[Rfam]
RNA sequence: UUGCUGGUGAAAGUCCAGUACGGGUAAUUGCCAAGGAGCCCGUUAGCUAAUCCCAGUGCUCCGCAGUAAUGUGGGGUGCCAAGCGGGAGGAUAAAGUACCUGUUUAAUAACAGGGCAAGCAAAAGUGCAGGUUGUAACAUAA
Numbered sequence: 001u002u003g004c005u006g007g008u009g010a011a012a013g014u015c016c017a018g019u020a021c022g023g024g025u026a027a028u029u030g031c032c033a034a035g036g037a038g039c040c041c042g043u044u045a046g047c048u049a050a051u052c053c054c055a056g057u058g059c060u061c062c063g064c065a066g067u068a069a070u071g072u073g074g075g076g077u078g079c080c081a082a083g084c085g086g087g088a089g090g091a092u093a094a095a096g097u098a099c100c101u102g103u104u105u106a107a108u109a110a111c112a113g114g115g116c117a118a119g120c121a122a123a124a125g126u127g128c129a130g131g132u133u134g135u136a137a138c139a140u141a142a
Stems, first nucleotide, its partner, number of pairs: 020043005051088004056079005064071002096116001099114005119135003
RNA: Group II catalytic intron D1-D4-4